[Rfam]
RNA: DUF2800 RNA
RNA sequence: UCUAUGCGGAAAUAUCCCUUAGCUAAGGAUUAUUCGGAGUCCGCAUAGAACAACUAAAUAAGUACAGCGGUCUUACCGAAUAAGGCAGCUGCAAGUCAAGAUGAAGGAAUUCUUCAUUCUAGCUUGUGGUGUUUUGUCAUGCCUUAUUUGAGCUGAAUU
Numbered sequence: 001u002c003u004a005u006g007c008g009g010a011a012a013u014a015u016c017c018c019u020u021a022g023c024u025a026a027g028g029a030u031u032a033u034u035c036g037g038a039g040u041c042c043g044c045a046u047a048g049a050a051c052a053a054c055u056a057a058a059u060a061a062g063u064a065c066a067g068c069g070g071u072c073u074u075a076c077c078g079a080a081u082a083a084g085g086c087a088g089c090u091g092c093a094a095g096u097c098a099a100g101a102u103g104a105a106g107g108a109a110u111u112c113u114u115c116a117u118u119c120u121a122g123c124u125u126g127u128g129g130u131g132u133u134u135u136g137u138c139a140u141g142c143c144u145u146a147u148u149u150g151a152g153c154u155g156a157a158u159u
Stems, first nucleotide, its partner, number of pairs: 001049010014030004032081006065155004088130005101117005
Dot-bracket structure: ((((((((((...((((.........)))).[[[[[[..))))))))))...............((((.......]]]]]]......(((((........(((((.......)))))........))))).....................))))....